[Rfam]
Group I catalytic intron: a 272-nucleotide RNA from Niallia nealsonii. Gene Ontology term of the family: Group I intron splicing. Rfam's curators write: Group I catalytic introns are large self-splicing ribozymes. They catalyse their own excision from mRNA, tRNA and rRNA precursors in a wide range of organisms. The core secondary structure consists of 9 paired regions (P1-P9). These fold to essentially two domains - the P4-P6 domain (formed from the stacking of P5, P4, P6 and P6a helices) and the P3-P9 domain (formed from the P8, P3, P7 and P9 helices). The secondary structure mark-up for this family represents only this conserved core. Group I catalytic introns often have long ORFs inserted in loop regions. The window size for this search is chosen to minimise search time and catch the small examples. A larger window size will find more matches. A reference for the family is Cech (1990), "Self-splicing of group I introns", Annu Rev Biochem. Taxonomically the source falls in Niallia (Bacteria, Bacillota, Bacilli, Bacillaceae).
RNA sequence: CAGUCUGUGUCAGGAUAGGGCACACUUCAGUGGAAACACUGUCGCUUAAACCUCGUGAAUUCAGGGAAGGAAUGAAAAUUCUAAUCCUGAGCCAAGCUCUCUUAUAGGGAGAAGGUGCAGAGACUAUCGAAAUCAUAUAAAUAGGAAGCGAAUCUUGUACUAUUUAUAGAAGAAAGUAGAGUACAUCUACGGAUGGAAGCGCGAGGGUUCUUAUUUUUUAUUCGCAAGGAAAAUAAGAAUAUGAUAUAGUCCAGCUGCUAAUUAUUUGGCAG
Numbered sequence: 001c002a003g004u005c006u007g008u009g010u011c012a013g014g015a016u017a018g019g020g021c022a023c024a025c026u027u028c029a030g031u032g033g034a035a036a037c038a039c040u041g042u043c044g045c046u047u048a049a050a051c052c053u054c055g056u057g058a059a060u061u062c063a064g065g066g067a068a069g070g071a072a073u074g075a076a077a078a079u080u081c082u083a084a085u086c087c088u089g090a091g092c093c094a095a096g097c098u099c100u101c102u103u104a105u106a107g108g109g110a111g112a113a114g115g116u117g118c119a120g121a122g123a124c125u126a127u128c129g130a131a132a133u134c135a136u137a138u139a140a141a142u143a144g145g146a147a148g149c150g151a152a153u154c155u156u157g158u159a160c161u162a163u164u165u166a167u168a169g170a171a172g173a174a175a176g177u178a179g180a181g182u183a184c185a186u187c188u189a190c191g192g193a194u195g196g197a198a199g200c201g202c203g204a205g206g207g208u209u210c211u212u213a214u215u216u217u218u219u220a221u222u223c224g225c226a227a228g229g230a231a232a233a234u235a236a237g238a239a240u241a242u243g244a245u246a247u248a249g250u251c252c253a254g255c256u257g258c259u260a261a262u263u264a265u266u267u268g269g270c271a272g
Stems, first nucleotide, its partner, number of pairs: 006024006029040003051206004056201002061090006070081004091116002098109002120252001122251005209238011257270005